The record is a 62-nucleotide sequence from Coffea canephora, which matches "Plastid-psbA-3 3UTR RNA" in Rfam. Plastid psbA-3 is a non-coding RNA (ncRNA) present in plastids. NCBI's taxonomy places the organism under Eukaryota, eudicotyledons, lamiids, Rubiaceae, Coffea. By type it is a cis-regulatory element.

RNA sequence: AAAGGAGCAAUAAGACCCUCUUAUCUUAAGAGAAUAAGAAGGAAAUUAUUGCUCCUUUAUUU
Numbered sequence: 001a002a003a004g005g006a007g008c009a010a011u012a013a014g015a016c017c018c019u020c021u022u023a024u025c026u027u028a029a030g031a032g033a034a035u036a037a038g039a040a041g042g043a044a045a046u047u048a049u050u051g052c053u054c055c056u057u058u059a060u061u062u
Base pairs, nucleotide, nucleotide: 001058002057003056004055005054006053007052008051009050010049011048012047013046019039020038021037022036023035
The family is grouped with related families in Rfam's "Plastid-psbA 3UTR RNA clan".
The literature on the family includes a 2023 paper in Plant Commun by Richter et al., "Retrograde signaling in plants: A critical review focusing on the GUN pathway and beyond".